The family of this 68-nucleotide RNA sequence from Panicum miliaceum is "Small nucleolar RNA Z105". It scores 50 bits against the family's covariance model. By type it is a C/D-box small nucleolar RNA. The organism belongs to Panicum sect. Panicum, within Eukaryota. A reference for the family is Chen et al. (2003), "The high diversity of snoRNAs in plants: identification and comparative study of 120 snoRNA genes from Oryza sativa", Nucleic Acids Res. Its family is annotated with RNA processing and nucleolus in the Gene Ontology.

[Rfam]
RNA sequence: UUUGCAUCAUGAGGAAAAAAAUAGAUUGUCUGAUCUACUAGAUGAGAAAUUCCUCCUACUUAUUCUGA
Numbered sequence: 001u002u003u004g005c006a007u008c009a010u011g012a013g014g015a016a017a018a019a020a021a022u023a024g025a026u027u028g029u030c031u032g033a034u035c036u037a038c039u040a041g042a043u044g045a046g047a048a049a050u051u052c053c054u055c056c057u058a059c060u061u062a063u064u065c066u067g068a
Stems, first nucleotide, its partner, number of pairs: 006063002009060001026047002030041001